[Rfam]
This 279-nucleotide RNA sequence from Amniculicola lignicola belongs to the Rfam family "Fungal signal recognition particle RNA". The family has 50 seed sequences and 748 matches in Rfam 15.1. It is annotated as a non-coding RNA gene. A search with the family's covariance model found it, with a score of 143 bits. Its family is annotated with signal recognition particle, endoplasmic reticulum targeting, signal recognition particle, plasma membrane targeting and SRP-dependent cotranslational protein targeting to membrane, signal sequence recognition in the Gene Ontology.
RNA sequence: ACCUGUAAUGGGUCUUCGUCAGAAGGUGCGCCGACAUCCAUCCUGCACGUUCCUGUUACGACUUUGGCUGAGAGCCCAGUUCGAGUCCGGUGGUGUCCGUUCACUUUGUGAAUUCUCCCACUCCUUUGGGUAACCAAGGAUGCUGGGCGGACCUAAGCAAUGAAUACUACUGUCGAGGGAAGCAAUUCUGCAGACGCGUAUUCACCAUUGGACGGCGGUGCUGGAAUACUCUUGUUAGGGUUGGAAUGGGUGGGAUGGGCUGGUGUAUCGACUGACAUU
Numbered sequence: 001a002c003c004u005g006u007a008a009u010g011g012g013u014c015u016u017c018g019u020c021a022g023a024a025g026g027u028g029c030g031c032c033g034a035c036a037u038c039c040a041u042c043c044u045g046c047a048c049g050u051u052c053c054u055g056u057u058a059c060g061a062c063u064u065u066g067g068c069u070g071a072g073a074g075c076c077c078a079g080u081u082c083g084a085g086u087c088c089g090g091u092g093g094u095g096u097c098c099g100u101u102c103a104c105u106u107u108g109u110g111a112a113u114u115c116u117c118c119c120a121c122u123c124c125u126u127u128g129g130g131u132a133a134c135c136a137a138g139g140a141u142g143c144u145g146g147g148c149g150g151a152c153c154u155a156a157g158c159a160a161u162g163a164a165u166a167c168u169a170c171u172g173u174c175g176a177g178g179g180a181a182g183c184a185a186u187u188c189u190g191c192a193g194a195c196g197c198g199u200a201u202u203c204a205c206c207a208u209u210g211g212a213c214g215g216c217g218g219u220g221c222u223g224g225a226a227u228a229c230u231c232u233u234g235u236u237a238g239g240g241u242u243g244g245a246a247u248g249g250g251u252g253g254g255a256u257g258g259g260c261u262g263g264u265g266u267a268u269c270g271a272c273u274g275a276c277a278u279u
Base pairs, nucleotide, nucleotide: 001013002012003011018276019275020274021273022272025269026268027267028266029265030264031263032262033260035258036256037255038254039253044252045251046250048248049247053070055068056067057066058065071232072231073230074229076224077223078222079221080220081218082217083216085213086212087211088210089209090208091207092206093205113151114150115149117147118146119145120144122140123139124138125137126136128135129134153157161204162203163202164201165200166199167198171196172195173194174193179188180187181186